[Rfam]
This 134-nucleotide RNA from Xenopus tropicalis belongs to the Rfam family "Small nucleolar RNA SNORA22". Rfam links the family to the GO terms RNA processing and nucleolus.
RNA sequence: UGGCAUAGAGAACACCCAAGUGUGCUUUGUAGCUCCCUUGGCCUUACAUCUGUGCUAAAUUAAUAUAUGUACUUUUACCUCUGCGGUAGAAGGUGGCUUUUCCUUCUAUAUGUAUUCAGAAGUACAGUACAGUG
Numbered sequence: 001u002g003g004c005a006u007a008g009a010g011a012a013c014a015c016c017c018a019a020g021u022g023u024g025c026u027u028u029g030u031a032g033c034u035c036c037c038u039u040g041g042c043c044u045u046a047c048a049u050c051u052g053u054g055c056u057a058a059a060u061u062a063a064u065a066u067a068u069g070u071a072c073u074u075u076u077a078c079c080u081c082u083g084c085g086g087u088a089g090a091a092g093g094u095g096g097c098u099u100u101u102c103c104u105u106c107u108a109u110a111u112g113u114a115u116u117c118a119g120a121a122g123u124a125c126a127g128u129a130c131a132g133u134g
Base pairs, nucleotide, nucleotide: 003055004054005053006052007051008050010049014045016041017040018039019038020037022035024033025032026031057074058073060071061069062068080120081119082118083117084112085111088107089106090105091104092103093102
Overview
The match comes from Rfam's covariance-model search (100 bits). The organism belongs to Silurana, within Eukaryota. ACA22 is a member of the H/ACA class of snoRNA that guide the sites of modification of uridines to pseudouridines.